A member of the RNA family "small nucleolar RNA snoR135" from Miscanthus lutarioriparius, 144 nucleotides long. On this family, see Chen and Wu, Nucleic Acids Res 2009: "Mining small RNA sequencing data: a new approach to identify small nucleolar RNAs in Arabidopsis". Lineage of the source: Eukaryota > Euphyllophyta > Poaceae > Andropogoneae > Miscanthus. Rfam classes the family as an H/ACA-box small nucleolar RNA. The family has 6 seed sequences and 837 matches in Rfam 15.1.
RNA sequence: UGUGCAGGACUUGUCUAGACAGGCAUACAAAAACUUGUGUUACUUGCCACCUGAACUUUCCUGCUAGAUCAGUUUAAGAAAAAUGGGCAGUUGAGUUAGGCCAGAUGCCUUAUGGUUUCCUCAACAAUCAUUUUUCUCAUAUUU
Numbered sequence: 001u002g003u004g005c006a007g008g009a010c011u012u013g014u015c016u017a018g019a020c021a022g023g024c025a026u027a028c029a030a031a032a033a034c035u036u037g038u039g040u041u042a043c044u045u046g047c048c049a050c051c052u053g054a055a056c057u058u059u060c061c062u063g064c065u066a067g068a069u070c071a072g073u074u075u076a077a078g079a080a081a082a083a084u085g086g087g088c089a090g091u092u093g094a095g096u097u098a099g100g101c102c103a104g105a106u107g108c109c110u111u112a113u114g115g116u117u118u119c120c121u122c123a124a125c126a127a128u129c130a131u132u133u134u135u136c137u138c139a140u141a142u143u144u
Stems, first nucleotide, its partner, number of pairs: 004064006077137010090125006